[Rfam]
RNA sequence: CCGCACAUAAUUCGGGUUUCGAGACGAUGAAACCGUAAUUAUAAUUGGUUCGUUGUCGACGAAACCUGCAAAAUGUGCGG
Dot-bracket structure: ((((((......(((((((((.........((((............)))).........)))))))))......))))))
RNA: mir-981 microRNA precursor family